[Rfam]
A member of the RNA family "MIR168 microRNA precursor family" from Morella rubra, 189 nucleotides long. Its family is annotated with miRNA-mediated post-transcriptional gene silencing and RISC complex in the Gene Ontology. Pairs were carried over by alignment from the consensus structure, which was predicted with WAR. For this family Rfam cites "MicroRNAs in plants" (Reinhart et al., Genes Dev, 2002).
RNA sequence: UUACCGGCGGUCUCUAAUUCGCUUGGUGCAGGUCGGGAACUGCUUCGCCUGCCCCCUUGAAGACGUCAGAAUAUUGCAAGUAUUAUUUUUCGCUAGACUGCGAUUUGAGAUUGGUUGUUUGUGGUUGUGGUCCGAAAUAGGCGAAUUGGGUCCCGCCUUGCAUCAACUGAAUCGGAGACCGCGGUGAAG
Numbered sequence: 001u002u003a004c005c006g007g008c009g010g011u012c013u014c015u016a017a018u019u020c021g022c023u024u025g026g027u028g029c030a031g032g033u034c035g036g037g038a039a040c041u042g043c044u045u046c047g048c049c050u051g052c053c054c055c056c057u058u059g060a061a062g063a064c065g066u067c068a069g070a071a072u073a074u075u076g077c078a079a080g081u082a083u084u085a086u087u088u089u090u091c092g093c094u095a096g097a098c099u100g101c102g103a104u105u106u107g108a109g110a111u112u113g114g115u116u117g118u119u120u121g122u123g124g125u126u127g128u129g130g131u132c133c134g135a136a137a138u139a140g141g142c143g144a145a146u147u148g149g150g151u152c153c154c155g156c157c158u159u160g161c162a163u164c165a166a167c168u169g170a171a172u173c174g175g176a177g178a179c180c181g182c183g184g185u186g187a188a189g
Stems, first nucleotide, its partner, number of pairs: 013176002017172004023166010034155005040149002